Record summary
Rfam assigns this 105-nucleotide RNA from Effusibacillus lacus to the family "SAM riboswitch aptamer (S box leader)".
RNA sequence: UCCUUAUCAAGAGCUGACUGAGGGACUGGCCCUAUGACGUCCAGCAACCUACCGACACCCGGUAAGGUGCUAACUCCUGCAGGUUGAAACCCUGAGAGAUAAGGC
Numbered sequence: 001u002c003c004u005u006a007u008c009a010a011g012a013g014c015u016g017a018c019u020g021a022g023g024g025a026c027u028g029g030c031c032c033u034a035u036g037a038c039g040u041c042c043a044g045c046a047a048c049c050u051a052c053c054g055a056c057a058c059c060c061g062g063u064a065a066g067g068u069g070c071u072a073a074c075u076c077c078u079g080c081a082g083g084u085u086g087a088a089a090c091c092c093u094g095a096g097a098g099a100u101a102a103g104g105c
Stems, first nucleotide, its partner, number of pairs: 002104007013042001016041003022032003026079001028077002043071004048067002050064004075097001080094004085089001
A search with the family's covariance model found it, with a score of 84 bits. For this family Rfam cites "The S box regulon: a new global transcription termination control system for methionine and cysteine biosynthesis genes in gram-positive bacteria" (Grundy and Henkin, Mol Microbiol, 1998).